[Rfam]
RNA sequence: CCCCCCGAAGUUUCUCACAGGAUAGCUGGGACUCACGCAGUUGCAUCGAGUAAAGAUACUGGUUGUGUAUCCGGGGAUGCGUAUAUCUUCGGACCAUUGUCAAACUCUGAAUCGGUGUUCGCGGCGCUUGCUUAGGUGAAGCGUCCGCACUAAUGCGAGUCUCAAGUGGGCUAGUUUUGGUAAGCAGAAUUGGCGAUGCGGGAUGAACCGGGUGUUGCGUUAAAGUGUCUAACUGCAUGCUAACCUAGAUCCCAGAAAGGGUGUCAACCGGUAUGGACAGCAGGGCGGUGGUCAUAGAAGUCGAAACCCGCUAAGGAGUGUGUUAUAACUCACCUGUCGAACCGGUAGGCCCCGAUAAUGGAUGACGCUGAAGCACGCGACUUAGACGCAACCGUCGGAGCGAUCGAGCUUCGAUCGGGUAGGGGGGCGUGGAUGCAGCACCGAAGCACGAGGCGUAAGCCUGUGUGGAGCAACAUCUAGUGCAGAU
Numbered sequence: 001c002c003c004c005c006c007g008a009a010g011u012u013u014c015u016c017a018c019a020g021g022a023u024a025g026c027u028g029g030g031a032c033u034c035a036c037g038c039a040g041u042u043g044c045a046u047c048g049a050g051u052a053a054a055g056a057u058a059c060u061g062g063u064u065g066u067g068u069a070u071c072c073g074g075g076g077a078u079g080c081g082u083a084u085a086u087c088u089u090c091g092g093a094c095c096a097u098u099g100u101c102a103a104a105c106u107c108u109g110a111a112u113c114g115g116u117g118u119u120c121g122c123g124g125c126g127c128u129u130g131c132u133u134a135g136g137u138g139a140a141g142c143g144u145c146c147g148c149a150c151u152a153a154u155g156c157g158a159g160u161c162u163c164a165a166g167u168g169g170g171c172u173a174g175u176u177u178u179g180g181u182a183a184g185c186a187g188a189a190u191u192g193g194c195g196a197u198g199c200g201g202g203a204u205g206a207a208c209c210g211g212g213u214g215u216u217g218c219g220u221u222a223a224a225g226u227g228u229c230u231a232a233c234u235g236c237a238u239g240c241u242a243a244c245c246u247a248g249a250u251c252c253c254a255g256a257a258a259g260g261g262u263g264u265c266a267a268c269c270g271g272u273a274u275g276g277a278c279a280g281c282a283g284g285g286c287g288g289u290g291g292u293c294a295u296a297g298a299a300g301u302c303g304a305a306a307c308c309c310g311c312u313a314a315g316g317a318g319u320g321u322g323u324u325a326u327a328a329c330u331c332a333c334c335u336g337u338c339g340a341a342c343c344g345g346u347a348g349g350c351c352c353c354g355a356u357a358a359u360g361g362a363u364g365a366c367g368c369u370g371a372a373g374c375a376c377g378c379g380a381c382u383u384a385g386a387c388g389c390a391a392c393c394g395u396c397g398g399a400g401c402g403a404u405c406g407a408g409c410u411u412c413g414a415u416c417g418g419g420u421a422g423g424g425g426g427g428c429g430u431g432g433a434u435g436c437a438g439c440a441c442c443g444a445a446g447c448a449c450g451a452g453g454c455g456u457a458a459g460c461c462u463g464u465g466u467g468g469a470g471c472a473a474c475a476u477c478u479a480g481u482g483c484a485g486a487u
Base pairs, nucleotide, nucleotide: 001427002426003425004424005423006422011024013022014021015020027164028163029162030161031160032159033158043118044117045116046115047114048113053108054106055105060102061101062100063099065097066096067094068093071092072091073090074089075088076087078085122147123146124145125143126142127141128140129139170194171193172192173191174190175189176188177187178186179185199210200209201208214392215391216390217389218388220386224382225381226380233379235378238375239374240373259353260352261351263350264349265348267346268345269344270343271342272341280337281336282335283334284333286310287309288308292304293303311315316331320329321328393417394416395414396413397412398411399410400409401408428482430479431478432477433476434475435474438471439470446466447465452461453460454459
The family of this 487-nucleotide part of an RNA from Lotharella oceanica is "Eukaryotic large subunit ribosomal RNA". The family's consensus secondary structure is taken from published work. Rfam links the family to the GO terms structural constituent of ribosome and ribosome.